[Rfam]
RNA: Small nucleolar RNA snoR136
RNA sequence: ACUGCUUCAUUACUUCUGUUUGGUGCUCCUGUAAAUCUGUUCUGGUUUGCGGGGCUUUGAGUGAGUGAAGCAAGAAAGAGGAUAAGGAUCCCCUCGCUAUCCAGUGCAGAGCUUCUAUGCUGUACUUGGACGUUGGGGAACUACAUUU
Number, nucleotide and partner (000 for none) at each position: 001a000002c074003u072004g071005c070006u000007u000008c067009a066010u065011u064012a000013c000014u000015u000016c000017u059018g057019u000020u000021u000022g000023g000024u000025g055026c054027u000028c053029c052030u051031g050032u049033a048034a047035a046036u000037c000038u000039g000040u000041u000042c000043u000044g000045g000046u035047u034048u033049g032050c031051g030052g029053g028054g026055c025056u000057u018058u000059g017060a000061g000062u000063g000064a011065g010066u009067g008068a000069a000070g005071c004072a003073a000074g002075a000076a000077a000078g000079a000080g000081g000082a000083u000084a000085a000086g000087g141088a000089u139090c138091c137092c136093c135094u000095c132096g131097c000098u000099a000100u130101c129102c128103a127104g126105u000106g000107c000108a000109g120110a000111g118112c000113u000114u000115c000116u000117a000118u111119g000120c109121u000122g000123u000124a000125c000126u104127u103128g102129g101130a100131c096132g095133u000134u000135g093136g092137g091138g090139a089140a000141c087142u000143a000144c000145a000146u000147u000148u000